The family of this 92-nucleotide RNA sequence from Vibrio genomosp. F10 is "Qrr RNA". On this family, see Feng et al., Cell 2015: "A qrr noncoding RNA deploys four different regulatory mechanisms to optimize quorum-sensing dynamics". Gene Ontology term of the family: quorum sensing. This family represents a set of small RNAs (the Qrr RNAs) that are thought to be involved in the regulation of quorum sensing in Vibrio species.
[Rfam]
RNA sequence: UCACCUAGCCAACUGACGUUGUUAGUGAACGCAUUUUUGUUCACAGAUAUAUAUAGCCAAUCCCCACUUAUUUUGGGAUUGGCUUUUUUCUU
Dot-bracket structure: ...................(((..(((((((......)))))))......)))...((((((((..........))))))))..........